This 138-nucleotide RNA from Niallia endozanthoxylica belongs to the Rfam family "FMN riboswitch aptamer (RFN element)".
RNA sequence: AUCUAUCUUCGGGGCAGGGUGAAAUUCCCGACCGACGGUGAUGAGAUGAGAUUCUCUAAGCCCGUGAGCCUGAUUUUUUAGGCAGGAUUUGGUGCAAUUCCAAAGCCGACAGUACAGUCUGGAUGGGAGAAGAUGGGG
Numbered sequence: 001a002u003c004u005a006u007c008u009u010c011g012g013g014g015c016a017g018g019g020u021g022a023a024a025u026u027c028c029c030g031a032c033c034g035a036c037g038g039u040g041a042u043g044a045g046a047u048g049a050g051a052u053u054c055u056c057u058a059a060g061c062c063c064g065u066g067a068g069c070c071u072g073a074u075u076u077u078u079u080a081g082g083c084a085g086g087a088u089u090u091g092g093u094g095c096a097a098u099u100c101c102a103a104a105g106c107c108g109a110c111a112g113u114a115c116a117g118u119c120u121g122g123a124u125g126g127g128a129g130a131a132g133a134u135g136g137g138g
Stems, first nucleotide, its partner, number of pairs: 003136008017029003031118002033108002035065004060106002068083003088104005110121003
A search with the family's covariance model found it, with a score of 121 bits.